This 192-nucleotide RNA sequence from Prodigiosinella confusarubida belongs to the Rfam family "Yersinia sRNA 276". Rfam classes the family as an antisense RNA. NCBI's taxonomy places the organism under Bacteria, Pseudomonadati, Gammaproteobacteria, Pectobacteriaceae, Prodigiosinella.

[Rfam]
RNA sequence: GACAGACAUCAGUGAUUCGUGCUGUGAGCCCUGGCCAACAGCCAGAUAGGCGUUCAUUCCCAGUUCUUUCAUCUGCUGUUCGCCAAUCACGCGGGUGGUGAUAUGGUCGUAGGUAUCGGCCAACUGACGCGCCUGAGACGCCAGAUAAGCGGCAUUACAGAUAUUAGGCGGCAUGUUGCCUAGAUCUUUUGC
Number, nucleotide and partner (000 for none) at each position: 001g000002a000003c000004a000005g186006a185007c000008a000009u000010c000011a000012g032013u000014g030015a000016u028017u027018c026019g025020u024021g000022c000023u000024g020025u019026g018027a017028g016029c000030c014031c000032u012033g043034g042035c041036c000037a000038a000039c000040a000041g035042c034043c033044a000045g000046a000047u000048a000049g000050g059051c000052g000053u000054u000055c000056a000057u000058u000059c050060c000061c000062a077063g076064u075065u000066c000067u000068u000069u000070c000071a000072u000073c000074u000075g064076c063077u062078g132079u131080u000081c129082g128083c000084c126085a125086a000087u123088c000089a000090c000091g120092c119093g000094g117095g116096u115097g114098g000099u109100g108101a107102u106103a000104u000105g000106g102107u101108c100109g099110u000111a000112g000113g000114u097115a096116u095117c094118g000119g092120c091121c000122a000123a087124c000125u085126g084127a000128c082129g081130c000131g079132c078133c160134u159135g158136a000137g156138a155139c000140g153141c152142c151143a000144g000145a000146u000147a000148a000149g000150c000151g142152g141153c140154a000155u138156u137157a000158c135159a134160g133161a000162u000163a000164u183165u182166a181167g180168g179169c178170g000171g000172c000173a000174u000175g000176u000177u000178g169179c168180c167181u166182a165183g164184a000185u006186c005187u000188u000189u000190u000191g000192c000